This 70-nucleotide RNA sequence belongs to the Rfam family "mir-101 microRNA precursor family". The literature on the family includes a 2002 paper in Genes Dev by Mourelatos et al., "miRNPs: a novel class of ribonucleoproteins containing numerous microRNAs". Rfam links the family to the GO terms RISC complex and miRNA-mediated post-transcriptional gene silencing. The base pairs follow the family's consensus structure, which was predicted with RNAalifold.
[Rfam]
RNA sequence: UUUUUCGGUUAUCAUGGUACCGGUGCUGUAUACGUGAAAGGUACAGUACUGUGAUAACUGAAGAAUGGUG
Numbered sequence: 001u002u003u004u005u006c007g008g009u010u011a012u013c014a015u016g017g018u019a020c021c022g023g024u025g026c027u028g029u030a031u032a033c034g035u036g037a038a039a040g041g042u043a044c045a046g047u048a049c050u051g052u053g054a055u056a057a058c059u060g061a062a063g064a065a066u067g068g069u070g
Base pairs, nucleotide, nucleotide: 006060007059008058009057010056011055012054013053014052015051016050017049018048019047020046022044024043025042026041027040